[Rfam]
RNA: Alphaproteobacteria transfer-messenger RNA
Organism: Rickettsiales bacterium Ac37b
RNA sequence: UCCCUUCACAUUUAUUAAUAAUUCCAGUAUAAUAAACUUGUCUAGUAAGACUAUGACAAUAAACGUUGUUUGAAAUAAAUAUUUCGGACCCGGGGGCGGUACCCGGCAUCUCCACCAAAUAUAACUAUUUUCAAGAUUCUUACUUAUGGGGAUGAAAUAGCUUCGACGGGUAUAAUAAAGAAACAAUUUUUGUCCGGUCUGAUCACGCCGUAAAAUGAUCUAAAUAGAAAUGCCAAUGAUAACAAGGCAUCUGUAAAUUAUGCAAACGUAGCAAACGAUAAUUUUGCUUUUGCUGCAGCAGCAUAACUUAACGCGGUUUGGGGGCUACCGGGCAACAGAAAUGCCCCUU
Numbered sequence: 001u002c003c004c005u006u007c008a009c010a011u012u013u014a015u016u017a018a019u020a021a022u023u024c025c026a027g028u029a030u031a032a033u034a035a036a037c038u039u040g041u042c043u044a045g046u047a048a049g050a051c052u053a054u055g056a057c058a059a060u061a062a063a064c065g066u067u068g069u070u071u072g073a074a075a076u077a078a079a080u081a082u083u084u085c086g087g088a089c090c091c092g093g094g095g096g097c098g099g100u101a102c103c104c105g106g107c108a109u110c111u112c113c114a115c116c117a118a119a120u121a122u123a124a125c126u127a128u129u130u131u132c133a134a135g136a137u138u139c140u141u142a143c144u145u146a147u148g149g150g151g152a153u154g155a156a157a158u159a160g161c162u163u164c165g166a167c168g169g170g171u172a173u174a175a176u177a178a179a180g181a182a183a184c185a186a187u188u189u190u191u192g193u194c195c196g197g198u199c200u201g202a203u204c205a206c207g208c209c210g211u212a213a214a215a216u217g218a219u220c221u222a223a224a225u226a227g228a229a230a231u232g233c234c235a236a237u238g239a240u241a242a243c244a245a246g247g248c249a250u251c252u253g254u255a256a257a258u259u260a261u262g263c264a265a266a267c268g269u270a271g272c273a274a275a276c277g278a279u280a281a282u283u284u285u286g287c288u289u290u291u292g293c294u295g296c297a298g299c300a301g302c303a304u305a306a307c308u309u310a311a312c313g314c315g316g317u318u319u320g321g322g323g324g325c326u327a328c329c330g331g332g333c334a335a336c337a338g339a340a341a342u343g344c345c346c347c348u349u
Base pairs, nucleotide, nucleotide: 040051041050042049043048055194056193057192058191059190065187066186067185068184069183070182071181080172081171082170084169085168086167090106091105092104093103094102107154108153109152110151111150112149113148195210196209197208198207201220202219314330315329316328317327320347321346322345323344